The family of this 87-nucleotide sequence from Myotis davidii is "Small nucleolar RNA SNORD105".

RNA sequence: AUAUUCCUUCUCUUGAUGAACCCAUGUGCCUCUGAGCUGCCAUGAUUCUGGCUUCAAAGUAAACGCUCUGAAGAGAUGGGGGGAAAA
Number, nucleotide and partner (000 for none) at each position: 001a000002u087003a000004u085005u084006c000007c082008u081009u080010c079011u000012c000013u000014u000015g000016a000017u000018g000019a000020a000021c000022c000023c000024a000025u000026g000027u000028g000029c000030c000031u000032c000033u000034g000035a000036g000037c000038u000039g000040c000041c000042a000043u000044g000045a000046u000047u000048c000049u000050g000051g000052c000053u000054u000055c000056a000057a000058a000059g000060u000061a000062a000063a000064c000065g000066c000067u000068c000069u000070g000071a000072a000073g000074a000075g000076a000077u000078g000079g010080g009081g008082g007083g000084a005085a004086a000087a002
The family is grouped with related families in Rfam's "SNORD105 clan". About the family: U105 belongs to the C/D family of snoRNAs. It is encoded in an intron of the Suppressor of SWI4 1 homolog (Ssf-1) (Peter Pan homolog) gene. and is predicted to guide 2'O-ribose methylation of residue U799 of the small 18S rRNA subunit. The base pairs follow the family's consensus structure.